Rfam assigns this 57-nucleotide RNA from Parenemella sanctibonifatiensis to the family "msiK RNA".
[Rfam]
RNA sequence: CGGGCACGUUUCCACUACGGAUCGUCGGGCACGUACCUGCCCGUGGAAAGGAUGUGG
Numbered sequence: 001c002g003g004g005c006a007c008g009u010u011u012c013c014a015c016u017a018c019g020g021a022u023c024g025u026c027g028g029g030c031a032c033g034u035a036c037c038u039g040c041c042c043g044u045g046g047a048a049a050g051g052a053u054g055u056g057g
Stems, first nucleotide, its partner, number of pairs: 009049006026043006
It is annotated as a cis-regulatory element.